RNA sequence: CCAGAUGGCCGGAUGGCUGCCUUUGGCGUUUCGGGCGCAAGCCCGGGGCGCCGGGGGAGGAAAGUCCGGGCUCCACGGAAACACGGUGCCGGGUAACGCCCGGCGGGGGCGACCCUAGGGAAAGUGCCACAGAAAGCAAACCGCCACCCGGAACGUGCCGCAAGGGACGCCGGAGGUAAGGGUGAAAGGGUGCGGUAAGAGCGCACCGCGCGACCGGCAACGGAAGCGGCAGGGCAAACCCCACCGGGAGCAAGACCAAGUAGGGACGGCAGGGCUCCUUGAGGGUUCAGGCGGGUUUUCGCGCCGCCGUCCGGGUCGGUCGCGCGAGGCGUCCGGUAACGGGCGUCCCAGAUGAAUGGCCAUCUCGGGAGGCUUCGGCCUUUCGGACAGAACCCGGCUUACAGGCCAUCUGGCUCU
Number, nucleotide and partner (000 for none) at each position: 001c413002c412003a411004g410005a409006u408007g407008g406009c405010c404011g402012g364013a363014u362015g361016g360017c359018u358019g000020c057021c056022u055023u054024u053025g052026g051027c050028g049029u048030u047031u046032c045033g044034g043035g042036c000037g000038c000039a000040a000041g000042c035043c034044c033045g032046g031047g030048g029049c028050g027051c026052c025053g024054g023055g022056g021057g020058a000059g000060g000061a000062a400063a399064g398065u000066c397067c396068g395069g394070g393071c250072u249073c248074c247075a000076c000077g000078g000079a299080a298081a297082c000083a000084c246085g245086g244087u243088g242089c103090c102091g101092g100093g099094u000095a000096a000097c000098g000099c093100c092101c091102g090103g089104c118105g116106g115107g114108g113109g000110c000111g000112a000113c108114c107115c106116u105117a000118g104119g241120g240121a000122a000123a000124g239125u238126g235127c234128c233129a000130c000131a000132g000133a000134a000135a000136g000137c000138a000139a000140a000141c181142c180143g177144c176145c175146a000147c173148c172149c000150g170151g000152a000153a000154c000155g000156u000157g000158c000159c000160g000161c000162a000163a000164g000165g000166g000167a000168c000169g000170c150171c000172g148173g147174a000175g145176g144177u143178a000179a000180g142181g141182g000183u000184g000185a000186a000187a000188g000189g207190g206191u205192g204193c203194g202195g000196u000197a000198a000199g000200a000201g000202c194203g193204c192205a191206c190207c189208g230209c228210g227211c226212g000213a000214c223215c222216g221217g000218c000219a000220a000221c216222g215223g214224a000225a000226g211227c210228g209229g000230c208231a000232g000233g128234g127235c126236a000237a000238a125239c124240c120241c119242c088243a087244c086245c085246g084247g074248g073249a072250g071251c000252a000253a000254g321255a320256c319257c318258a000259a000260g000261u000262a000263g000264g312265g311266a310267c309268g308269g307270c000271a000272g000273g000274g000275c000276u000277c000278c000279u000280u000281g000282a000283g000284g000285g000286u000287u000288c000289a000290g305291g304292c303293g302294g000295g000296u000297u081298u080299u079300c000301g000302c293303g292304c291305c290306g000307c269308c268309g267310u266311c265312c264313g000314g000315g000316u000317c000318g257319g256320u255321c254322g000323c000324g000325c000326g000327a000328g347329g346330c345331g344332u343333c342334c341335g340336g000337u000338a000339a000340c335341g334342g333343g332344c331345g330346u329347c328348c000349c000350a000351g000352a000353u000354g000355a000356a000357u000358g018359g017360c016361c015362a014363u013364c012365u000366c000367g000368g000369g000370a000371g000372g000373c000374u000375u000376c000377g000378g000379c000380c000381u000382u000383u000384c000385g000386g000387a000388c000389a000390g000391a000392a000393c070394c069395c068396g067397g066398c064399u063400u062401a000402c011403a000404g010405g009406c008407c007408a006409u005410c004411u003412g002413g001414c000415u000416c000417u000
RNA: Bacterial RNase P class A